A member of the RNA family "Epstein-Barr virus stable intronic sequence RNA 2" from Pelodiscus sinensis, 86 nucleotides long. On this family, see Moss et al., RNA Biol 2014: "RNA families in Epstein-Barr virus".

RNA sequence: AGCCGGGGAGGCGGAGGGGUCCUGCGCCUCUGAGGCUUUGCUGUGGCAAAGCCUCAGAGGCGCGGGACCCCGCCGCCUCCCCGGCU
Dot-bracket structure: (((((((((.((...((((((((((((((((((((((((((....))))))))))))))))))))))))))...)).)))))))))
Numbered sequence: 001a002g003c004c005g006g007g008g009a010g011g012c013g014g015a016g017g018g019g020u021c022c023u024g025c026g027c028c029u030c031u032g033a034g035g036c037u038u039u040g041c042u043g044u045g046g047c048a049a050a051g052c053c054u055c056a057g058a059g060g061c062g063c064g065g066g067a068c069c070c071c072g073c074c075g076c077c078u079c080c081c082c083g084g085c086u
Stems, first nucleotide, its partner, number of pairs: 001086009011076002016071026